[Rfam]
Nucleotides: 177
Stems, first nucleotide, its partner, number of pairs: 006172006016083006022076003032067006087116011117143006124136004145162007
Number, partner (000 for none) and nucleotide at each position: 001000a002000g003000u004000g005000u006172a007171g008170a009169u010168a011167g012000a013000g014000g015000u016083g017082c018081a019080a020079g021078u022076u023075u024074c025000a026000a027000a028000a029000g030000u031000a032067a033066a034065a035064g036063u037062c038000c039000g040000g041000a042000g043000a044000a045000u046000g047000a048000u049000c050000g051000g052000a053000u054000u055000c056000g057000a058000g059000g060000a061000a062037g063036g064035c065034u066033u067032u068000g069000a070000a071000a072000g073000g074024g075023g076022a077000u078021g079020c080019u081018u082017g083016c084000c085000g086000a087116a088115g089114u090113g091112g092111g093110g094109a095108g096107a097106u098000g099000c100000c101000u102000a103000u104000c105000g106097a107096u108095u109094u110093u111092c112091c113090u114089g115088c116087u117143g118142g119141u120140c121139c122138u123000u124136c125135g126134u127133u128000g129000a130000a131000u132000a133127a134126a135125c136124g137000c138122a139121g140120g141119a142118u143117u144000g145162u146161c147160a148159a149158g150157a151156u152000u153000g154000c155000c156151a157150u158149c159148u160147u161146g162145g163000a164000g165000u166000g167011c168010u169009a170008u171007c172006u173000c174000a175000u176000g177000u